[Rfam]
RNA sequence: CAACUCUGGAAAGCAGGGCUGAGCUGGAGUGCAGCCCUCACCGACGGUGUAAGCCGCCGGGUCGGACAGGUGCGCCUGCCCGCCCGCGGUGAAACUCUCAGGUUCCAUGACAGAGGGGGAGGA
Numbered sequence: 001c002a003a004c005u006c007u008g009g010a011a012a013g014c015a016g017g018g019c020u021g022a023g024c025u026g027g028a029g030u031g032c033a034g035c036c037c038u039c040a041c042c043g044a045c046g047g048u049g050u051a052a053g054c055c056g057c058c059g060g061g062u063c064g065g066a067c068a069g070g071u072g073c074g075c076c077u078g079c080c081c082g083c084c085c086g087c088g089g090u091g092a093a094a095c096u097c098u099c100a101g102g103u104u105c106c107a108u109g110a111c112a113g114a115g116g117g118g119g120a121g122g123a
Stems, first nucleotide, its partner, number of pairs: 001118001004115005015038007040103003043099002047097001049095001053090005
The record is a 123-nucleotide RNA from Catenulispora acidiphila, which matches "Glycine riboswitch aptamer" in Rfam. Its family is annotated with glycine biosynthetic process in the Gene Ontology. The literature on the family includes a 2004 paper in Science by Mandal et al., "A glycine-dependent riboswitch that uses cooperative binding to control gene expression". Taxonomically the source falls in Catenulispora acidiphila (Bacteria, Bacillati, Actinomycetes, Catenulispora).